Rfam assigns this 126-nucleotide RNA sequence from Catagonus wagneri to the family "Small nucleolar RNA SNORA25". The family's RNA type in Rfam is H/ACA-box small nucleolar RNA. The family's consensus secondary structure was predicted with RNAfold. The match comes from Rfam's covariance-model search (90 bits). NCBI's taxonomy places the organism under Eukaryota, Dipnotetrapodomorpha, Tetrapoda, Mammalia, Catagonus. About the family: ACA25 is a member of the H/ACA class of snoRNA that guide the sites of modification of uridines to pseudouridines.

RNA sequence: AUGUCAUUUCAAAGAGGACUCGUGAGUCUGUGAAACCAGGAGCUUUUAACCCUAUGACUAAAGCUUGAAAUUCUUCAGAGGAUGCCAUAGUCACUUAAUAGUGCUAAGUUUCUAGGAGAAGUAAGA
Numbered sequence: 001a002u003g004u005c006a007u008u009u010c011a012a013a014g015a016g017g018a019c020u021c022g023u024g025a026g027u028c029u030g031u032g033a034a035a036c037c038a039g040g041a042g043c044u045u046u047u048a049a050c051c052c053u054a055u056g057a058c059u060a061a062a063g064c065u066u067g068a069a070a071u072u073c074u075u076c077a078g079a080g081g082a083u084g085c086c087a088u089a090g091u092c093a094c095u096u097a098a099u100a101g102u103g104c105u106a107a108g109u110u111u112c113u114a115g116g117a118g119a120a121g122u123a124a125g126a
Stems, first nucleotide, its partner, number of pairs: 003058005014047004019042003023039001026037001072119005079113004088106003092103004